[Rfam]
RNA sequence: CUUGCCCUCAAGGAGCUCACAGUCUAUUGAGUUACUUUUAAGACUUUCCCACUAGAUUGGGAGCUCCUGGAGGGCAGG
Numbered sequence: 001c002u003u004g005c006c007c008u009c010a011a012g013g014a015g016c017u018c019a020c021a022g023u024c025u026a027u028u029g030a031g032u033u034a035c036u037u038u039u040a041a042g043a044c045u046u047u048c049c050c051a052c053u054a055g056a057u058u059g060g061g062a063g064c065u066c067c068u069g070g071a072g073g074g075c076a077g078g
Base pairs, nucleotide, nucleotide: 001078002077003076004075005074006073007072008071009070011068012067013066014065015064016063017062018061020059021058022057023056024055025054026053028051029050030045031044032043033042
RNA: mir-28 microRNA precursor family